[Rfam]
RNA sequence: CUGCUCACCAGGGCUCAGUCCUCCUCCUCUUGUGGUCCUGACCUGCCCUCUGUGAGCAAGAGAAUCUGGACUGGUUGGGGGUGUCCUGUCCAAGUGGACACAGGACUCCACGGUUUUCAGUACAACA
Numbered sequence: 001c002u003g004c005u006c007a008c009c010a011g012g013g014c015u016c017a018g019u020c021c022u023c024c025u026c027c028u029c030u031u032g033u034g035g036u037c038c039u040g041a042c043c044u045g046c047c048c049u050c051u052g053u054g055a056g057c058a059a060g061a062g063a064a065u066c067u068g069g070a071c072u073g074g075u076u077g078g079g080g081g082u083g084u085c086c087u088g089u090c091c092a093a094g095u096g097g098a099c100a101c102a103g104g105a106c107u108c109c110a111c112g113g114u115u116u117u118c119a120g121u122a123c124a125a126c127a
Stems, first nucleotide, its partner, number of pairs: 003057006012047003018042003025035002068123001070121005076113001077111001080109002083106005088099004

Source information:
Small Cajal body specific RNA 23: a 127-nucleotide RNA sequence from Rattus norvegicus. scaRNAs are a specific class of small nuclear RNAs which localise to the Cajal bodies and guide the modification of RNA polymerase II transcribed spliceosomal RNAs U1, U2, U4, U5 and U12. ACA11 belongs to the H/ACA box class of guide RNAs as it has the predicted hairpin-hinge-hairpin-tail structure,the conserved H/ACA-box motifs and is found associated with GAR1. H/ACA snRNAs are predicted to guide the modification of uridines to pseudouridines in substrate RNAs however, no target RNA has been identified for scaRNA ACA11.